About this RNA
The record is a 44-nucleotide RNA from Solanum commersonii, which matches "Plastid-ycf3 group II-D1 intron" in Rfam. The match comes from Rfam's covariance-model search (55 bits). The base pairs follow the family's consensus structure, which was predicted with LocARNA. The source organism's lineage runs through Eukaryota, Mesangiospermae, Gunneridae, Solanaceae and Solanum. The family has 385 seed sequences and 1,488 matches in Rfam 15.1.

RNA sequence: AUUCCUUAUGUCGUGUAUCCUCGACUAAUCCAACCUCAGAUGCU
Numbered sequence: 001a002u003u004c005c006u007u008a009u010g011u012c013g014u015g016u017a018u019c020c021u022c023g024a025c026u027a028a029u030c031c032a033a034c035c036u037c038a039g040a041u042g043c044u
Base pairs, nucleotide, nucleotide: 010025011024012023013022032044034042